[Rfam]
RNA: MIR535 microRNA precursor family
RNA sequence: CAAAUCAUAUGACAACGAGAUAGAGCACGCUUGUAUGCAGCCAUAUCUCAUUGAAUGACUGCCAACCAGCGUGCUCUCUCUCAUUGUCAAAUAAUG
Numbered sequence: 001c002a003a004a005u006c007a008u009a010u011g012a013c014a015a016c017g018a019g020a021u022a023g024a025g026c027a028c029g030c031u032u033g034u035a036u037g038c039a040g041c042c043a044u045a046u047c048u049c050a051u052u053g054a055a056u057g058a059c060u061g062c063c064a065a066c067c068a069g070c071g072u073g074c075u076c077u078c079u080c081u082c083a084u085u086g087u088c089a090a091a092u093a094a095u096g
Base pairs, nucleotide, nucleotide: 010089011088012087013086014085017082020079023076025074026073027072028071029070030069031068033066034065